The family of this 493-nucleotide part of an RNA from Dimargaris verticillata is "Eukaryotic large subunit ribosomal RNA".
Taxonomically the source falls in Dimargaris (Eukaryota, Kickxellomycota, Dimargaritomycetes, Dimargaritales).
RNA sequence: CCUACCGAAGUUUCCCUCAGGAUAGCAGAGGCAUGUUUGCGGUAGUUGCACGAGGUAAAGCGAAUGAUUAGAGGCGCAGGUGUUCGAAGAAUGUCUACCUAUUCUCAAACUUUGAAUGCGUGCGGAGCGCGCGCUGUGCUUUAGUGACGGCGCGCGGCGAAUACCCAAGCCUCUAGUGGGCCAGCUUUGGUAAGCAGAGAUGGCGAUGUGGGAUGAACCAAAAGCCCGGUUAAGGUGCCAAAGUGUACGCGCAUGUAGACCCCACAAAAGGUGUUGAUUCAUCCAGACAGCAGGACGGUGGCCAUGGAAGUCGGAAUCCGCUAAGGAGUGUGUAACAACUCACCUGCCGAAUGAAUCAGCCCUGAAAAUGGAUGGCGCUCCAGCGUACGACCGACACCGGGCCCGCUCGCGGUGCGUGAGCGGUGUAGGUAGGUGCUAUGGGGGCGCAGAAGCGCGUCCGUGAGGACGCGUGGAGCCCGCCAUUGCUACAGAU
Numbered sequence: 001c002c003u004a005c006c007g008a009a010g011u012u013u014c015c016c017u018c019a020g021g022a023u024a025g026c027a028g029a030g031g032c033a034u035g036u037u038u039g040c041g042g043u044a045g046u047u048g049c050a051c052g053a054g055g056u057a058a059a060g061c062g063a064a065u066g067a068u069u070a071g072a073g074g075c076g077c078a079g080g081u082g083u084u085c086g087a088a089g090a091a092u093g094u095c096u097a098c099c100u101a102u103u104c105u106c107a108a109a110c111u112u113u114g115a116a117u118g119c120g121u122g123c124g125g126a127g128c129g130c131g132c133g134c135u136g137u138g139c140u141u142u143a144g145u146g147a148c149g150g151c152g153c154g155c156g157g158c159g160a161a162u163a164c165c166c167a168a169g170c171c172u173c174u175a176g177u178g179g180g181c182c183a184g185c186u187u188u189g190g191u192a193a194g195c196a197g198a199g200a201u202g203g204c205g206a207u208g209u210g211g212g213a214u215g216a217a218c219c220a221a222a223a224g225c226c227c228g229g230u231u232a233a234g235g236u237g238c239c240a241a242a243g244u245g246u247a248c249g250c251g252c253a254u255g256u257a258g259a260c261c262c263c264a265c266a267a268a269a270g271g272u273g274u275u276g277a278u279u280c281a282u283c284c285a286g287a288c289a290g291c292a293g294g295a296c297g298g299u300g301g302c303c304a305u306g307g308a309a310g311u312c313g314g315a316a317u318c319c320g321c322u323a324a325g326g327a328g329u330g331u332g333u334a335a336c337a338a339c340u341c342a343c344c345u346g347c348c349g350a351a352u353g354a355a356u357c358a359g360c361c362c363u364g365a366a367a368a369u370g371g372a373u374g375g376c377g378c379u380c381c382a383g384c385g386u387a388c389g390a391c392c393g394a395c396a397c398c399g400g401g402c403c404c405g406c407u408c409g410c411g412g413u414g415c416g417u418g419a420g421c422g423g424u425g426u427a428g429g430u431a432g433g434u435g436c437u438a439u440g441g442g443g444g445c446g447c448a449g450a451a452g453c454g455c456g457u458c459c460g461u462g463a464g465g466a467c468g469c470g471u472g473g474a475g476c477c478c479g480c481c482a483u484u485g486c487u488a489c490a491g492a493u
Base pairs, nucleotide, nucleotide: 001433002432003431004430005429006428011024013022014021015020027174028173029172030171031170032169046125047124048123049122050121051120052119058113059111060110065107066106067105070102072100073099074098078096079095080094081093082092084090129155130154131153132152133151134150135149136148137147180204181203182202183201185199186198187197188196189195209220210219211218224402225401226400227399228398230396234392235391236390245388248385249384250383269363270362271361273360274359275358276357277356278355279354280353281352282351290347291346292345293344294343296320297319298318302314303313321325326341330339331338403423404422405421406420407419408418409417410416411415434488436485438483439482440481441480442478443477444476445475452471453470457466458465459464
The family has 88 seed sequences and 107,465 matches in Rfam 15.1. The family's consensus secondary structure is taken from published work. It scores 2613 bits against the family's covariance model.